Glycine riboswitch aptamer: a 96-nucleotide RNA from Microbacterium keratanolyticum. It scores 43 bits against the family's covariance model. The source organism's lineage runs through Bacteria, Bacillati, Micrococcales, Microbacteriaceae and Microbacterium.
RNA sequence: CCACUCUGAAAAGCGAUCGAGAGUUCUUGAUCCGCCGACGGUGAAAGCUGCCUCUCCUCGAGGCGGCGAAACUCUCAGGCCCAUGACAGAGGGGGA
Numbered sequence: 001c002c003a004c005u006c007u008g009a010a011a012a013g014c015g016a017u018c019g020a021g022a023g024u025u026c027u028u029g030a031u032c033c034g035c036c037g038a039c040g041g042u043g044a045a046a047g048c049u050g051c052c053u054c055u056c057c058u059c060g061a062g063g064c065g066g067c068g069a070a071a072c073u074c075u076c077a078g079g080c081c082c083a084u085g086a087c088a089g090a091g092g093g094g095g096a
Stems, first nucleotide, its partner, number of pairs: 001094002004091005015032004034080003037076002041074001043072001047067008